A member of the RNA family "tRNA" from Sulfitobacter sp. SK012, 73 nucleotides long. Rfam classes the family as a transfer RNA.
[Rfam]
RNA sequence: GGGUUGUUAGCUCAGUUGGUAGAGCGCUUCGUUUACACCGAAGAUGUCGGGAGUUCGAGCCUCUCACAACCCA
Numbered sequence: 001g002g003g004u005u006g007u008u009a010g011c012u013c014a015g016u017u018g019g020u021a022g023a024g025c026g027c028u029u030c031g032u033u034u035a036c037a038c039c040g041a042a043g044a045u046g047u048c049g050g051g052a053g054u055u056c057g058a059g060c061c062u063c064u065c066a067c068a069a070c071c072c073a
Base pairs, nucleotide, nucleotide: 001072002071003070004069005068006067007066010025011024012023013022027043028042029041030040031039049065050064051063052062053061